[Rfam]
RNA sequence: AUCAUCAUAUGAUGAAAUUCGGAAAAAAUCUUAGGACACCUUCCUACACAGCAUUUACUUGCUGUGGAUGAGAAGAACAUUCCAUUCUGAUGAUGAU
Numbered sequence: 001a002u003c004a005u006c007a008u009a010u011g012a013u014g015a016a017a018u019u020c021g022g023a024a025a026a027a028a029u030c031u032u033a034g035g036a037c038a039c040c041u042u043c044c045u046a047c048a049c050a051g052c053a054u055u056u057a058c059u060u061g062c063u064g065u066g067g068a069u070g071a072g073a074a075g076a077a078c079a080u081u082c083c084a085u086u087c088u089g090a091u092g093a094u095g096a097u
Stems, first nucleotide, its partner, number of pairs: 001097007044051002
Notes:
The record is a 97-nucleotide RNA from Morus notabilis, which matches "Small nucleolar RNA snoR31/Z110/Z27" in Rfam. About the family: This family contains several related snoRNAs including R31, Z27 and Z110. The literature on the family includes a 2003 paper in Nucleic Acids Res by Chen et al., "The high diversity of snoRNAs in plants: identification and comparative study of 120 snoRNA genes from Oryza sativa". A search with the family's covariance model found it, with a score of 69 bits. Rfam classes the family as a C/D-box small nucleolar RNA.